[Rfam]
RNA: bZIP non canonical Hac1/Xbp1 intron
RNA sequence: CCGCUCGACUUGACACAACAUUCUGCAGCAAUGUUGUGUGACCUGCAGUGUCAGUCGAGCGG
Numbered sequence: 001c002c003g004c005u006c007g008a009c010u011u012g013a014c015a016c017a018a019c020a021u022u023c024u025g026c027a028g029c030a031a032u033g034u035u036g037u038g039u040g041a042c043c044u045g046c047a048g049u050g051u052c053a054g055u056c057g058a059g060c061g062g
Stems, first nucleotide, its partner, number of pairs: 001062004006057005017035006040052003